Shown here is a 52-nucleotide RNA from Aquilegia coerulea, a member of the family "Plastid-ccsA-ndhD-1 3UTR RNA".
The source organism's lineage runs through Eukaryota, Tracheophyta, Magnoliopsida, Ranunculales and Aquilegia.
Rfam classes the family as a cis-regulatory element.
A reference for the family is Richter et al. (2023), "Retrograde signaling in plants: A critical review focusing on the GUN pathway and beyond", Plant Commun.
RNA sequence: GGGUUUUUAAGAACCAUUUGAAUCAAGUCGUGAUUCAAACGGUUCUUAAAAA
Numbered sequence: 001g002g003g004u005u006u007u008u009a010a011g012a013a014c015c016a017u018u019u020g021a022a023u024c025a026a027g028u029c030g031u032g033a034u035u036c037a038a039a040c041g042g043u044u045c046u047u048a049a050a051a052a
Stems, first nucleotide, its partner, number of pairs: 007049009017039009
A search with the family's covariance model found it, with a score of 53 bits.
Plastid-ccsA-ndhD-1 is a non-coding RNA (ncRNA) recognised in plastids.